[Rfam]
RNA sequence: AACUACACUAUUAAUGAAUGGAUUCACCCGCAAGAUGACGUGGCUGGUUCACAUAGGACGAGAACGUGGCAUUCUAUUACCAGCCAUCGCAUGAAAUUAAUAGGAUAUGCCACGUCAUCAUCCUAGAUGGAAUAACUACGUCAUCACACGGGUGAAUCCAUCAUCGAUAGUGUGGUU
Numbered sequence: 001a002a003c004u005a006c007a008c009u010a011u012u013a014a015u016g017a018a019u020g021g022a023u024u025c026a027c028c029c030g031c032a033a034g035a036u037g038a039c040g041u042g043g044c045u046g047g048u049u050c051a052c053a054u055a056g057g058a059c060g061a062g063a064a065c066g067u068g069g070c071a072u073u074c075u076a077u078u079a080c081c082a083g084c085c086a087u088c089g090c091a092u093g094a095a096a097u098u099a100a101u102a103g104g105a106u107a108u109g110c111c112a113c114g115u116c117a118u119c120a121u122c123c124u125a126g127a128u129g130g131a132a133u134a135a136c137u138a139c140g141u142c143a144u145c146a147c148a149c150g151g152g153u154g155a156a157u158c159c160a161u162c163a164u165c166g167a168u169a170g171u172g173u174g175g176u177u
Stems, first nucleotide, its partner, number of pairs: 001177007009169004014164002018161002021158008030149001035144005041138003045134002048131001051128001054125002057122002064115002069110003072105008086097002
RNA: MIR807 microRNA precursor family